[Rfam]
RNA sequence: GGCAUAUGGCUUGCUUGUUCCGUCUCAACAGAGCGCUUUCCAACGGCGGAAAGCGUCCAUAGACAAUGGCGUCGU
Numbered sequence: 001g002g003c004a005u006a007u008g009g010c011u012u013g014c015u016u017g018u019u020c021c022g023u024c025u026c027a028a029c030a031g032a033g034c035g036c037u038u039u040c041c042a043a044c045g046g047c048g049g050a051a052a053g054c055g056u057c058c059a060u061a062g063a064c065a066a067u068g069g070c071g072u073c074g075u
Stems, first nucleotide, its partner, number of pairs: 035054007
RNA: narK RNA
Organism: Pseudomonas indica